[Rfam]
RNA sequence: UGCCAGCUGGGGUUCCUGGUGAUGUGAUUUUAUUUUGGUGUUCAGAAUCACAUUGCCAGGGAUUUCCAACCAUCA
Numbered sequence: 001u002g003c004c005a006g007c008u009g010g011g012g013u014u015c016c017u018g019g020u021g022a023u024g025u026g027a028u029u030u031u032a033u034u035u036u037g038g039u040g041u042u043c044a045g046a047a048u049c050a051c052a053u054u055g056c057c058a059g060g061g062a063u064u065u066c067c068a069a070c071c072a073u074c075a
Stems, first nucleotide, its partner, number of pairs: 001075002006070001010067002012063019